Shown here is a 95-nucleotide RNA from Acrocarpospora phusangensis, a member of the family "Glycine riboswitch aptamer".
RNA sequence: UGACCCGCACGCGGGAGAGUCCGGUCCCAGGAAGGACCGGCGCCGAAGGAGCAACACUCCCCAGAAACUCUCAGGCCCCGUACCGCUUCGGUGAG
Numbered sequence: 001u002g003a004c005c006c007g008c009a010c011g012c013g014g015g016a017g018a019g020u021c022c023g024g025u026c027c028c029a030g031g032a033a034g035g036a037c038c039g040g041c042g043c044c045g046a047a048g049g050a051g052c053a054a055c056a057c058u059c060c061c062c063a064g065a066a067a068c069u070c071u072c073a074g075g076c077c078c079c080g081u082a083c084c085g086c087u088u089c090g091g092u093g094a095g
Stems, first nucleotide, its partner, number of pairs: 006090002009087001011086004021040007042076003045072002049070003
NCBI's taxonomy places the organism under Bacteria, Bacillati, Actinomycetota, Streptosporangiales, Acrocarpospora.